[Rfam]
RNA sequence: ACACAGGGAAGGAGGUGGUCCGACAAAUUGAGUGACUUAUGGACAUGUGAGGUGGCUGCGAGCUAGCAGCGCCGGGGAGCGCUUGACGCACACCUGCGCGCGCUGGCGAAUUCCCCGCAGUCACCCGGCCCCCGAGCCCCUUGGUUGUGUCCGACCGAGGAUGACGGCUCGGGGGCUGUCCCUU
Numbered sequence: 001a002c003a004c005a006g007g008g009a010a011g012g013a014g015g016u017g018g019u020c021c022g023a024c025a026a027a028u029u030g031a032g033u034g035a036c037u038u039a040u041g042g043a044c045a046u047g048u049g050a051g052g053u054g055g056c057u058g059c060g061a062g063c064u065a066g067c068a069g070c071g072c073c074g075g076g077g078a079g080c081g082c083u084u085g086a087c088g089c090a091c092a093c094c095u096g097c098g099c100g101c102g103c104u105g106g107c108g109a110a111u112u113c114c115c116c117g118c119a120g121u122c123a124c125c126c127g128g129c130c131c132c133c134g135a136g137c138c139c140c141u142u143g144g145u146u147g148u149g150u151c152c153g154a155c156c157g158a159g160g161a162u163g164a165c166g167g168c169u170c171g172g173g174g175g176c177u178g179u180c181c182c183u184u
Stems, first nucleotide, its partner, number of pairs: 015059005062107006069101004074095003126178013140159006

This 184-nucleotide sequence from Mycolicibacterium duvalii belongs to the Rfam family "Actinobacteria sRNA Ms_IGR-5".
A reference for the family is Li et al. (2013), "Identification of small RNAs in Mycobacterium smegmatis using heterologous Hfq", RNA.
Pairs were carried over by alignment from the consensus structure.
The match comes from Rfam's covariance-model search (179 bits).
The source organism's lineage runs through Bacteria, Bacillati, Mycobacteriales, Mycobacterium and Mycobacterium (subgen. Mycolicibacterium).